[Rfam]
A member of the RNA family "freshwater-2 RNA", 88 nucleotides long. The family's consensus secondary structure is taken from published work. It is annotated as a cis-regulatory element. Rfam's curators put it in the seed alignment.
RNA sequence: UUUCACAUACAGUGAAAGACUUAUGCGGAUAACCACCGCGUAGCCAGGAGAACUGGCAUUGGACUCCCUAAAAAGGAGAAAACAAAUG
Numbered sequence: 001u002u003u004c005a006c007a008u009a010c011a012g013u014g015a016a017a018g019a020c021u022u023a024u025g026c027g028g029a030u031a032a033c034c035a036c037c038g039c040g041u042a043g044c045c046a047g048g049a050g051a052a053c054u055g056g057c058a059u060u061g062g063a064c065u066c067c068c069u070a071a072a073a074a075g076g077a078g079a080a081a082a083c084a085a086a087u088g
Stems, first nucleotide, its partner, number of pairs: 001017006022042007043057004